A member of the RNA family "MIR7993 microRNA precursor family" from Capsicum annuum, 139 nucleotides long.
Rfam links the family to the GO terms miRNA-mediated post-transcriptional gene silencing and RISC complex.
NCBI's taxonomy places the organism under Eukaryota, Magnoliopsida, eudicotyledons, Gunneridae, Capsicum.
The match comes from Rfam's covariance-model search (105 bits).
RNA sequence: UUAAGUUAACCACAUAAAAUAUCCUCUCUCCUUUAAUUUUACGCAUCAACCUUGGUUAGAAAACGUCUGGGUUUACGACUUACUAAGAUGAAUGCAUAUAAUUAAAGGAGAUGGUAUAUUUUAUGUGGUCAACUUAACU
Numbered sequence: 001u002u003a004a005g006u007u008a009a010c011c012a013c014a015u016a017a018a019a020u021a022u023c024c025u026c027u028c029u030c031c032u033u034u035a036a037u038u039u040u041a042c043g044c045a046u047c048a049a050c051c052u053u054g055g056u057u058a059g060a061a062a063a064c065g066u067c068u069g070g071g072u073u074u075a076c077g078a079c080u081u082a083c084u085a086a087g088a089u090g091a092a093u094g095c096a097u098a099u100a101a102u103u104a105a106a107g108g109a110g111a112u113g114g115u116a117u118a119u120u121u122u123a124u125g126u127g128g129u130c131a132a133c134u135u136a137a138c139u
Stems, first nucleotide, its partner, number of pairs: 001137007009129014024114002028110011040098002043095004049089001051087002